[Rfam]
RNA: mir-574 microRNA precursor family
Organism: Cnephaeus nilssonii
RNA sequence: ACGCCUGAAGAAAGAGGCAGGGUCUGAUCCUCAGCCUCCGCAGCAGCUGUUGAUCAGCUGUUGACUCUCUCUUUCUCUUCA
Numbered sequence: 001a002c003g004c005c006u007g008a009a010g011a012a013a014g015a016g017g018c019a020g021g022g023u024c025u026g027a028u029c030c031u032c033a034g035c036c037u038c039c040g041c042a043g044c045a046g047c048u049g050u051u052g053a054u055c056a057g058c059u060g061u062u063g064a065c066u067c068u069c070u071c072u073u074u075c076u077c078u079u080c081a
Stems, first nucleotide, its partner, number of pairs: 008073004013068004018063003022059001024057006032049004